[Rfam]
RNA: sraA
RNA sequence: AUGUAGUUCAGUAUAUGGGGAUGUUUCCCACACAUUCAACGGCAGGAAUAGCGGAAAAGUAAAAGGGGGAUAAAAUAUCCCCCUUUUGGCUAAUU
Numbered sequence: 001a002u003g004u005a006g007u008u009c010a011g012u013a014u015a016u017g018g019g020g021a022u023g024u025u026u027c028c029c030a031c032a033c034a035u036u037c038a039a040c041g042g043c044a045g046g047a048a049u050a051g052c053g054g055a056a057a058a059g060u061a062a063a064a065g066g067g068g069g070a071u072a073a074a075a076u077a078u079c080c081c082c083c084u085u086u087u088g089g090c091u092a093a094u095u
Base pairs, nucleotide, nucleotide: 008038010036011035012034016032017031019029020028062086063085064084065083066082067081068080069079070078071077072076